[Rfam]
RNA sequence: UGUUAAAACUUUCAUCCAUUUUCCACUAUUAAAAAUUGGUCCCUAUACGUUGGCAUGAGUAACAUGUGGCGCGCUAAGUGUAACUGUCCGGCUAUUUUGUUAGCUAUGCCAGUUUUUAAUAGUAAAAAUUGAUGAAAAUUUUAAUU
Numbered sequence: 001u002g003u004u005a006a007a008a009c010u011u012u013c014a015u016c017c018a019u020u021u022u023c024c025a026c027u028a029u030u031a032a033a034a035a036u037u038g039g040u041c042c043c044u045a046u047a048c049g050u051u052g053g054c055a056u057g058a059g060u061a062a063c064a065u066g067u068g069g070c071g072c073g074c075u076a077a078g079u080g081u082a083a084c085u086g087u088c089c090g091g092c093u094a095u096u097u098u099g100u101u102a103g104c105u106a107u108g109c110c111a112g113u114u115u116u117u118a119a120u121a122g123u124a125a126a127a128a129u130u131g132a133u134g135a136a137a138a139u140u141u142u143a144a145u146u
Stems, first nucleotide, its partner, number of pairs: 002145007010137007018129005025123003029119006
RNA: MIR7502 microRNA precursor family